A member of the RNA family "MIR168 microRNA precursor family" from Hibiscus trionum, 167 nucleotides long. For this family Rfam cites "MicroRNAs in plants" (Reinhart et al., Genes Dev, 2002). Its family is annotated with RISC complex and miRNA-mediated post-transcriptional gene silencing in the Gene Ontology. It scores 110 bits against the family's covariance model.
[Rfam]
RNA sequence: UUACCGGCGGUCUCUAAUUCGCUUGGUGCAGGUCGGGAACUGAUUGGCUGCUCCUUAAUAUUAGAUUAGAUUUGAUUCUGAUUUUUAACCCGGAUGGCGGGCCGUGAUUGGAGGAAGCACGAAUCGGAUCCCGCCUUGCAUCAACUGAAUCGGAGACCGCGGUGAGG
Dot-bracket structure: ............((..((((..((((((((((.(((((.((((((............................................................................)))))).))))).))))))))))..))))..)).............